[Rfam]
Nucleotides: 096
Base pairs, nucleotide, nucleotide: 019081020080021079022078023077024076025075030045031044032043033042055072056071057070058069059068060067
Number, partner (000 for none) and nucleotide at each position: 001000a002000g003000u004000a005000c006000a007000a008000u009000a010000u011000u012000u013000c014000c015000a016000a017000u018000a019081g020080c021079u022078u023077a024076u025075a026000u027000a028000u029000c030045g031044u032043c033042g034000u035000a036000a037000u038000a039000g040000g041000u042033c043032g044031a045030c046000a047000g048000u049000u050000u051000c052000u053000a054000c055072c056071c057070a058069g059068c060067a061000c062000c063000g064000u065000a066000a067060u068059g069058c070057u071056g072055g073000a074000c075025u076024a077023u078022a079021a080020g081019c082000a083000g084000a085000a086000a087000a088000c089000a090000g091000u092000c093000g094000a095000a096000u